[Rfam]
RNA sequence: GUCACAGGUGGUGCGGCAUUGCAAUCAGUGCAGCACCGAACGCGCAGUACCUAACGAAGACGGUAAAAAG
Dot-bracket structure: ........((((((.(((((......))))).))))))................................
Record summary:
Rfam assigns this 70-nucleotide sequence from Pseudomonas agarici to the family "sucC RNA". Pairs were carried over by alignment from the consensus structure, which is taken from published work. The match comes from Rfam's covariance-model search (81 bits). The family's RNA type in Rfam is cis-regulatory element.